[Rfam]
RNA sequence: GUAUGCAUAUGCAUGCAUGUAUGCAUAUGCAUGCAUGUAUGCAUAUGCAUGCAUGUAUGCAUAUGCAUGCUUGUAUGUAUGCAUGUAUGUAUGCAUGCUUGUAUGUAUGCAUGUAUUUAUGCAUAUGCAUGCAUGUAUGUAUAUGCAUGCUUGUAUGCAUAUGCGUUCAUGUAUGCAUAUGCAUUCAUGUAUGCAUAUGCAUUCAUGUAU
Numbered sequence: 001g002u003a004u005g006c007a008u009a010u011g012c013a014u015g016c017a018u019g020u021a022u023g024c025a026u027a028u029g030c031a032u033g034c035a036u037g038u039a040u041g042c043a044u045a046u047g048c049a050u051g052c053a054u055g056u057a058u059g060c061a062u063a064u065g066c067a068u069g070c071u072u073g074u075a076u077g078u079a080u081g082c083a084u085g086u087a088u089g090u091a092u093g094c095a096u097g098c099u100u101g102u103a104u105g106u107a108u109g110c111a112u113g114u115a116u117u118u119a120u121g122c123a124u125a126u127g128c129a130u131g132c133a134u135g136u137a138u139g140u141a142u143a144u145g146c147a148u149g150c151u152u153g154u155a156u157g158c159a160u161a162u163g164c165g166u167u168c169a170u171g172u173a174u175g176c177a178u179a180u181g182c183a184u185u186c187a188u189g190u191a192u193g194c195a196u197a198u199g200c201a202u203u204c205a206u207g208u209a210u
Base pairs, nucleotide, nucleotide: 001028002027003026004025005024006023007022008021009020010019011018029208032205033204036199037198038197039196040195041194042193043140044139046137047136048135049134051082052081053080054079055078056077057076058075059074105132106131107130108129109128110127112125113124141162142161143160144159145158146157147156148155180191181190182189183188
A member of the RNA family "Listeria sRNA rliA" from Ceratopteris richardii, 210 nucleotides long. It is annotated as a small RNA. The match comes from Rfam's covariance-model search (60 bits). The organism belongs to Ceratopteris, within Eukaryota.